[Rfam]
The family of this 108-nucleotide RNA sequence from Shinella fusca is "EcpR1". The family's consensus secondary structure was predicted with WAR. Taxonomically the source falls in Shinella (Bacteria, Alphaproteobacteria, Hyphomicrobiales, Rhizobiaceae). Perviously named SmelC291, SmrC10, or Sra33. According to its overproduction phenotype it was renamed Elongated Cell Phenotype RNA1. The literature on the family includes a 2012 paper in RNA Biol by Wilms et al., "Deep sequencing uncovers numerous small RNAs on all four replicons of the plant pathogen Agrobacterium tumefaciens".
RNA sequence: UUACCCCAUGAUGCUAGGUCCGCCGCAUCUCCUGGGUCGUGGGGUCGGUCGGCCAGCUACGGCAAAUACGGAAUCCUCGUGCCGUCGUCGUAUCUGGCCGACCCCCAU
Numbered sequence: 001u002u003a004c005c006c007c008a009u010g011a012u013g014c015u016a017g018g019u020c021c022g023c024c025g026c027a028u029c030u031c032c033u034g035g036g037u038c039g040u041g042g043g044g045u046c047g048g049u050c051g052g053c054c055a056g057c058u059a060c061g062g063c064a065a066a067u068a069c070g071g072a073a074u075c076c077u078c079g080u081g082c083c084g085u086c087g088u089c090g091u092a093u094c095u096g097g098c099c100g101a102c103c104c105c106c107a108u
Stems, first nucleotide, its partner, number of pairs: 003045008014036002016033003047103010